[Rfam]
RNA sequence: AAGCACUAAGGGCAAACCUGCCGAAAGGCAGGGACGCAAAGCCAUAGGGUCUACGGUGCUUACCGGCACUAUGACAGCCUGGUUGCCGCA
Numbered sequence: 001a002a003g004c005a006c007u008a009a010g011g012g013c014a015a016a017c018c019u020g021c022c023g024a025a026a027g028g029c030a031g032g033g034a035c036g037c038a039a040a041g042c043c044a045u046a047g048g049g050u051c052u053a054c055g056g057u058g059c060u061u062a063c064c065g066g067c068a069c070u071a072u073g074a075c076a077g078c079c080u081g082g083u084u085g086c087c088g089c090a
Stems, first nucleotide, its partner, number of pairs: 012037002017032006040084004046080003049075003056069004
Notes:
This 90-nucleotide RNA sequence from Geosporobacter ferrireducens belongs to the Rfam family "c-di-GMP-I riboswitch aptamer". GEMM was predicted in a large-scale screen for bacterial structured RNA regulatory elements. Gene Ontology term of the family: cyclic-di-GMP binding. The organism belongs to Geosporobacter, within Bacteria.